[Rfam]
RNA sequence: AGUUGAGUUUGAGGCCAUAGCAGAAGUGCUCAUGGUAUGGCUAUGUCAGAUUCCAAUAAAUCUGCAAAUUCUACU
Numbered sequence: 001a002g003u004u005g006a007g008u009u010u011g012a013g014g015c016c017a018u019a020g021c022a023g024a025a026g027u028g029c030u031c032a033u034g035g036u037a038u039g040g041c042u043a044u045g046u047c048a049g050a051u052u053c054c055a056a057u058a059a060a061u062c063u064g065c066a067a068a069u070u071c072u073a074c075u
Stems, first nucleotide, its partner, number of pairs: 012042001014041003019075002022072004026038003047064006
Dot-bracket structure: ...........[.[[[..((.(((((((.......)))]]]]....((((((......))))))....)))).))
This 75-nucleotide RNA sequence from Crocodylus porosus belongs to the Rfam family "Mammalian CPEB3 ribozyme". Gene Ontology term of the family: RNA nuclease activity. It scores 47 bits against the family's covariance model. Taxonomically the source falls in Crocodylus (Eukaryota, Opisthokonta, Gnathostomata, Archosauria).